[Rfam]
RNA sequence: AUGUGAAGUAGAGGCGCGACUUUCAAGAGUACUUGUUUGGAGAUGAGGGGUCGAUGAAAAGCAGGGAAAGGGAAAGAUCGCCGAAGUUCUCUCUAAGGCCCAUCACUUGGGAGAGCUGGGGCUGUACUCGAAUAGGGGCAGCACUGUCACAGAAGCCGCUAGCUUUUGUGGAGCACUAUCUUUACA
Numbered sequence: 001a002u003g004u005g006a007a008g009u010a011g012a013g014g015c016g017c018g019a020c021u022u023u024c025a026a027g028a029g030u031a032c033u034u035g036u037u038u039g040g041a042g043a044u045g046a047g048g049g050g051u052c053g054a055u056g057a058a059a060a061g062c063a064g065g066g067a068a069a070g071g072g073a074a075a076g077a078u079c080g081c082c083g084a085a086g087u088u089c090u091c092u093c094u095a096a097g098g099c100c101c102a103u104c105a106c107u108u109g110g111g112a113g114a115g116c117u118g119g120g121g122c123u124g125u126a127c128u129c130g131a132a133u134a135g136g137g138g139c140a141g142c143a144c145u146g147u148c149a150c151a152g153a154a155g156c157c158g159c160u161a162g163c164u165u166u167u168g169u170g171g172a173g174c175a176c177u178a179u180c181u182u183u184a185c186a
Stems, first nucleotide, its partner, number of pairs: 006181001008179004016081004021075004032065007085117009095107001118145002121142005127136002147171007

The family of this 186-nucleotide RNA from Thermoflavimicrobium dichotomicum is "Lysine riboswitch aptamer". The base pairs follow the family's consensus structure, which is taken from published work.